[Rfam]
RNA sequence: AGUAAUGGAUGAGGAGCAGAAAUCAUCAGUACCUUAUUACGUAAAAUCUGUAAAUUGUAAUAAGCGAAAGGGAAAUUUGCCGAAACAAUGUUCUGUUUACAGACAGACAUCGUUGGACUGUAGAUUAAUAGUGUGCGGUCUGUCAUUAUUCUAGUAAUAAUGGAGUGCUUCCACUUGU
Number, nucleotide and partner (000 for none) at each position: 001a000002g000003u000004a000005a000006u173007g172008g171009a170010u000011g168012a000013g000014g000015a000016g080017c079018a078019g077020a076021a000022a000023u073024c072025a000026u000027c000028a000029g000030u000031a000032c000033c064034u063035u062036a061037u060038u059039a058040c000041g000042u000043a000044a000045a000046a000047u000048c000049u000050g000051u000052a000053a000054a000055u000056u000057g000058u039059a038060a037061u036062a035063a034064g033065c000066g000067a000068a000069a000070g000071g000072g024073a023074a000075a000076u020077u019078u018079g017080c016081c000082g000083a000084a114085a113086c112087a000088a110089u109090g108091u107092u106093c000094u000095g000096u000097u000098u000099a000100c000101a000102g000103a000104c000105a000106g092107a091108c090109a089110u088111c000112g086113u085114u084115g141116g140117a139118c138119u137120g136121u135122a134123g000124a132125u131126u000127a000128a000129u000130a000131g125132u124133g000134u122135g121136c120137g119138g118139u117140c116141u115142g000143u163144c162145a161146u160147u159148a158149u157150u000151c000152u000153a000154g000155u000156a000157a149158u148159a147160a146161u145162g144163g143164a000165g000166u000167g000168c011169u000170u009171c008172c007173a006174c000175u000176u000177g000178u000